[Rfam]
RNA sequence: AAACAUCCCGGCCUUCUCUUCCUGGUUCUUCCCAGAGUGGGGAAAAGCUGGGUUAAGAGGGCAGGGGAAAAAAAAA
Numbered sequence: 001a002a003a004c005a006u007c008c009c010g011g012c013c014u015u016c017u018c019u020u021c022c023u024g025g026u027u028c029u030u031c032c033c034a035g036a037g038u039g040g041g042g043a044a045a046a047g048c049u050g051g052g053u054u055a056a057g058a059g060g061g062c063a064g065g066g067g068a069a070a071a072a073a074a075a076a
Stems, first nucleotide, its partner, number of pairs: 014059004021052005029044005

This 76-nucleotide RNA from Otolemur garnettii belongs to the Rfam family "mir-320 microRNA precursor family". The family has 38 seed sequences and 659 matches in Rfam 15.1. The base pairs follow the family's consensus structure, which was predicted with RNAalifold. The literature on the family includes a 2006 paper in Genome Res by Berezikov et al., "Many novel mammalian microRNA candidates identified by extensive cloning and RAKE analysis". A search with the family's covariance model found it, with a score of 71 bits.